[Rfam]
RNA sequence: CAUUGUCCGAUCUGGAUGUUUCUCUGAGUCAUACUCGUUGUGAUAUGACUAGAGACACAUUCAGCUUGGCUACGUG
Numbered sequence: 001c002a003u004u005g006u007c008c009g010a011u012c013u014g015g016a017u018g019u020u021u022c023u024c025u026g027a028g029u030c031a032u033a034c035u036c037g038u039u040g041u042g043a044u045a046u047g048a049c050u051a052g053a054g055a056c057a058c059a060u061u062c063a064g065c066u067u068g069g070c071u072a073c074g075u076g
Base pairs, nucleotide, nucleotide: 005071007069008068009067012064013063014062015061016060017059018058019057023054027050028049029048030047031046032045033044
This 76-nucleotide sequence from Haemonchus contortus belongs to the Rfam family "mir-44 microRNA precursor family". Its family is annotated with miRNA-mediated post-transcriptional gene silencing and RISC complex in the Gene Ontology. Lineage of the source: Eukaryota > Opisthokonta > Protostomia > Rhabditomorpha > Haemonchus.